[Rfam]
RNA: Glycine riboswitch aptamer
Organism: Leucobacter massiliensis
RNA sequence: CAAGCUGUGGCGGGAGAGUCCGGGAUCGGGAUCCCGGCGCCGUAGGAGCAAACCCUCCCCGGGAAUCUCUCAGGCACCCGUACCGUCACAGCGAG
Number, nucleotide and partner (000 for none) at each position: 001c000002a000003a000004g000005c000006u090007g089008u088009g087010g086011c085012g084013g083014g000015a000016g000017a000018g000019u000020c037021c036022g035023g034024g000025a000026u000027c000028g000029g000030g000031a000032u000033c000034c023035c022036g021037g020038c000039g075040c074041c073042g071043u000044a000045g000046g069047a068048g067049c000050a000051a000052a000053c061054c000055c000056u000057c000058c000059c000060c000061g053062g000063g000064a000065a000066u000067c048068u047069c046070u000071c042072a000073g041074g040075c039076a000077c000078c000079c000080g000081u000082a000083c013084c012085g011086u010087c009088a008089c007090a006091g000092c000093g000094a000095g000